[Rfam]
RNA sequence: AAGACUAUACUUCACAGGAUCAUUUCUGUAGUCAGUCUUCACAUACUUUCACACUAGCUGAAAGCCAAGUGCACCCGCGUUGAUGAGUUGAAUCGUUCUGUCCGGCAGCGUGAGGAUUUGCCCAGCACCCUUGUGGGAUGCACUGCAUCCUUAGCGGGGAGCGGGGCUUCGAUGAUCGCUCGGUUUGAACGGAUAGAGCGAAUUCUGAGUGGU
Numbered sequence: 001a002a003g004a005c006u007a008u009a010c011u012u013c014a015c016a017g018g019a020u021c022a023u024u025u026c027u028g029u030a031g032u033c034a035g036u037c038u039u040c041a042c043a044u045a046c047u048u049u050c051a052c053a054c055u056a057g058c059u060g061a062a063a064g065c066c067a068a069g070u071g072c073a074c075c076c077g078c079g080u081u082g083a084u085g086a087g088u089u090g091a092a093u094c095g096u097u098c099u100g101u102c103c104g105g106c107a108g109c110g111u112g113a114g115g116a117u118u119u120g121c122c123c124a125g126c127a128c129c130c131u132u133g134u135g136g137g138a139u140g141c142a143c144u145g146c147a148u149c150c151u152u153a154g155c156g157g158g159g160a161g162c163g164g165g166g167c168u169u170c171g172a173u174g175a176u177c178g179c180u181c182g183g184u185u186u187g188a189a190c191g192g193a194u195a196g197a198g199c200g201a202a203u204u205c206u207g208a209g210u211g212g213u
Stems, first nucleotide, its partner, number of pairs: 001039005009032003015028005048062004075212004093201012108179003120167004125162002128159001136150005
RNA: Small nucleolar RNA U3